[Rfam]
RNA: L31-Coriobacteria ribosomal protein leader
RNA sequence: CGUCUGGUCGGAAACCAGACCUACCAAAGGAG
Numbered sequence: 001c002g003u004c005u006g007g008u009c010g011g012a013a014a015c016c017a018g019a020c021c022u023a024c025c026a027a028a029g030g031a032g
Stems, first nucleotide, its partner, number of pairs: 002020007